[Rfam]
RNA: Small nucleolar RNA SNORA43
RNA sequence: GCUAUCCUGGACUUGCCAGCCCCAUAGACACAGUUGCUGUGCUGUGCCUGUACUAUUGGAGCAAAGAAAAAGUGGCUAUUUCUAUGCUCAGUGUUCACAAACCAGUGAGCACUAAGAAUGGUUUAUAGCCUGACAUUU
Numbered sequence: 001g002c003u004a005u006c007c008u009g010g011a012c013u014u015g016c017c018a019g020c021c022c023c024a025u026a027g028a029c030a031c032a033g034u035u036g037c038u039g040u041g042c043u044g045u046g047c048c049u050g051u052a053c054u055a056u057u058g059g060a061g062c063a064a065a066g067a068a069a070a071a072g073u074g075g076c077u078a079u080u081u082c083u084a085u086g087c088u089c090a091g092u093g094u095u096c097a098c099a100a101a102c103c104a105g106u107g108a109g110c111a112c113u114a115a116g117a118a119u120g121g122u123u124u125a126u127a128g129c130c131u132g133a134c135a136u137u138u
Stems, first nucleotide, its partner, number of pairs: 003063001005061001007059004024051004074130003082121003087116002092111006